[Rfam]
RNA: MIR7993 microRNA precursor family
Nucleotides: 141
Base pairs, nucleotide, nucleotide: 001139002138003137004136005135006134007133008132009131010130012128013127014126015125016124017123018122019121020120021119022118023117024116025115029111030110031109032108033107034106035105036104037103038102039101040100041099044096045095046094049091050090051089052088
Number, partner (000 for none) and nucleotide at each position: 001139u002138u003137a004136a005135g006134u007133u008132a009131a010130c011000c012128a013127c014126a015125u016124a017123a018122a019121a020120u021119a022118u023117g024116u025115u026000a027000u028000u029111u030110c031109u032108u033107u034106u035105a036104a037103u038102u039101a040100u041099a042000c043000a044096c045095a046094u047000c048000a049091a050090c051089c052088u053000c054000c055000a056000u057000u058000a059000g060000a061000a062000a063000a064000u065000g066000u067000u068000u069000g070000g071000g072000g073000u074000u075000c076000u077000a078000c079000g080000u081000c082000u083000u084000a085000u086000u087000g088052a089051g090050g091049u092000g093000a094046a095045u096044g097000c098000a099041u100040a101039u102038a103037a104036u105035u106034a107033a108032a109031a110030g111029a112000u113000a114000u115025g116024a117023c118022a119021u120020a121019u122018u123017u124016u125015a126014u127013g128012u129000a130010g131009u132008u133007a134006a135005c136004u137003u138002a139001a140000c141000u